[Rfam]
RNA sequence: GCGACGAGGACUCUGAACCUCGGGCAGGAGCGGGGGACCCACGUUUCCGGCGUCGCAGUUAGACGCCUCGGGGUGAAGCCACGCAUCGCGUGGCCGGGCCGACUCAGCCCGAACCCGACAGCUCACCUCGUAGGCGUGGAGAGGGUCGGA
Numbered sequence: 001g002c003g004a005c006g007a008g009g010a011c012u013c014u015g016a017a018c019c020u021c022g023g024g025c026a027g028g029a030g031c032g033g034g035g036g037a038c039c040c041a042c043g044u045u046u047c048c049g050g051c052g053u054c055g056c057a058g059u060u061a062g063a064c065g066c067c068u069c070g071g072g073g074u075g076a077a078g079c080c081a082c083g084c085a086u087c088g089c090g091u092g093g094c095c096g097g098g099c100c101g102a103c104u105c106a107g108c109c110c111g112a113a114c115c116c117g118a119c120a121g122c123u124c125a126c127c128u129c130g131u132a133g134g135c136g137u138g139g140a141g142a143g144g145g146u147c148g149g150a
Stems, first nucleotide, its partner, number of pairs: 011136001013134002019028002030131006040070001071116003079093004096110004
A member of the RNA family "c-di-AMP riboswitch aptamer (ydaO/yuaA leader)" from Cryptosporangium arvum, 150 nucleotides long. About the family: This family represents a conserved RNA structure found upstream of the ydaO and yuaA genes in Bacillus subtilis and related genes in other bacteria. The ydaO/yuaA element is thought to act as a genetic 'off' switch for the ydaO and yuaA genes in its native state. It is believed that the element may be triggered during osmotic shock leading to activation of ydaO, a predicted amino acid transporter gene, and members of the yuaA-yubG operon which code for KtrA and KtrB K+ transporters. The organism belongs to Cryptosporangium arvum, within Bacteria. Pairs were carried over by alignment from the consensus structure.